[Rfam]
RNA: Archaeal large subunit ribosomal RNA, nucleotides 1369 to 1763
RNA sequence: AGUAGUAGUAGUAUGUAGGGUGUGAAUCCCUACCGCCUUAAGAGCAAGGGUUCCUCGAAGAUGUUUAUCAGGCGAGGGUUAGCCGGUCCUAAGUGUUACCCUAACUGGAGUAACGCGAAUUGGGAAACAGGUUAAUAUUCCUGUGCCACGGUGAUACGUGCGGCAACGCAAGGCAAUCUGCCGACGCCUGAGGAUAGGUUGAGUACAGCCUAGCUGUAUCUAACUGUCUAAGACCAUGGAGUCCGUUAUGGAGAGAAGUGGUUGAAAGCAGGAUGGGCACGUCAUAUGGCGUGUUCAGCUAAAUCCUUGGGACCAUGAAAAGGAGAUUGCAAGGAGUCAUCGUGUCCGUACCGAGAUCCGACACGGGUGCUCUGGGUGAGAAACCCAAGGCGAAA
Numbered sequence: 001a002g003u004a005g006u007a008g009u010a011g012u013a014u015g016u017a018g019g020g021u022g023u024g025a026a027u028c029c030c031u032a033c034c035g036c037c038u039u040a041a042g043a044g045c046a047a048g049g050g051u052u053c054c055u056c057g058a059a060g061a062u063g064u065u066u067a068u069c070a071g072g073c074g075a076g077g078g079u080u081a082g083c084c085g086g087u088c089c090u091a092a093g094u095g096u097u098a099c100c101c102u103a104a105c106u107g108g109a110g111u112a113a114c115g116c117g118a119a120u121u122g123g124g125a126a127a128c129a130g131g132u133u134a135a136u137a138u139u140c141c142u143g144u145g146c147c148a149c150g151g152u153g154a155u156a157c158g159u160g161c162g163g164c165a166a167c168g169c170a171a172g173g174c175a176a177u178c179u180g181c182c183g184a185c186g187c188c189u190g191a192g193g194a195u196a197g198g199u200u201g202a203g204u205a206c207a208g209c210c211u212a213g214c215u216g217u218a219u220c221u222a223a224c225u226g227u228c229u230a231a232g233a234c235c236a237u238g239g240a241g242u243c244c245g246u247u248a249u250g251g252a253g254a255g256a257a258g259u260g261g262u263u264g265a266a267a268g269c270a271g272g273a274u275g276g277g278c279a280c281g282u283c284a285u286a287u288g289g290c291g292u293g294u295u296c297a298g299c300u301a302a303a304u305c306c307u308u309g310g311g312a313c314c315a316u317g318a319a320a321a322g323g324a325g326a327u328u329g330c331a332a333g334g335a336g337u338c339a340u341c342g343u344g345u346c347c348g349u350a351c352c353g354a355g356a357u358c359c360g361a362c363a364c365g366g367g368u369g370c371u372c373u374g375g376g377u378g379a380g381a382a383a384c385c386c387a388a389g390g391c392g393a394a395a
Base pairs, nucleotide, nucleotide: 015033016032017031018030019029020028034392035391036390037389042372043371044370045369048352049351053077054076055075056074057073062070063069084348085347086346088123089122093116094115095114096113097112098111100108101107127144128143129142130141131140147344148343149342150341151340152339153338154337181323182322187311188310189309190308191307192306193305194304197300198299199298200297201296203219204218205217206216207215224271225270226269227268233262234261235260236259237258242252243251244250283288358367359366373387374386375385376384